[Rfam]
RNA sequence: AGCAGAGUAGAUAUCAGUGCGUUAAGUGCUGCCGGAACGGGGAGUUGACCGGCGGACGAAAGGAACUGGAUGGAACAUCCAAUCCUGCGGUACUGAAUUCGCAUCCCGCUGCU
Numbered sequence: 001a002g003c004a005g006a007g008u009a010g011a012u013a014u015c016a017g018u019g020c021g022u023u024a025a026g027u028g029c030u031g032c033c034g035g036a037a038c039g040g041g042g043a044g045u046u047g048a049c050c051g052g053c054g055g056a057c058g059a060a061a062g063g064a065a066c067u068g069g070a071u072g073g074a075a076c077a078u079c080c081a082a083u084c085c086u087g088c089g090g091u092a093c094u095g096a097a098u099u100c101g102c103a104u105c106c107c108g109c110u111g112c113u
Base pairs, nucleotide, nucleotide: 001113002112003111004110005109010100011099014096015095016094017093018092019091020089021088022087026057027056029055030054031053032052033051034050035049040106041105042104044102061086062085063084064083
A member of the RNA family "THF (Tetrahydrofolate) riboswitch aptamer" from Oscillospiraceae bacterium Marseille-Q3528, 113 nucleotides long.
It scores 86 bits against the family's covariance model.
Rfam's curators write: Tetrahydrofolate (THF) riboswitch was first reported for Ames et al. as an RNA motif in 5' untranslated (5'-UTR)regions of folate transport and biosynthesis genes in Firmicutes genomes.
The literature on the family includes a 2010 paper in Chem Biol by Ames et al., "A eubacterial riboswitch class that senses the coenzyme tetrahydrofolate".